The record is an 86-nucleotide RNA sequence from Gemmatimonas sp., which matches "c-di-GMP-I riboswitch aptamer" in Rfam. The family's consensus secondary structure is taken from published work. The match comes from Rfam's covariance-model search (50 bits).

RNA sequence: CGCUGCUCAGAGCAAAGCCGUCGAAAGGCGGUGACGCAGAGCCACGGGGCUACCGCGACGAACGCCACGCCCGCCGAGCCGCCAGC
Numbered sequence: 001c002g003c004u005g006c007u008c009a010g011a012g013c014a015a016a017g018c019c020g021u022c023g024a025a026a027g028g029c030g031g032u033g034a035c036g037c038a039g040a041g042c043c044a045c046g047g048g049g050c051u052a053c054c055g056c057g058a059c060g061a062a063c064g065c066c067a068c069g070c071c072c073g074c075c076g077a078g079c080c081g082c083c084a085g086c
Stems, first nucleotide, its partner, number of pairs: 012037002017032006041079002045076003048071003055065003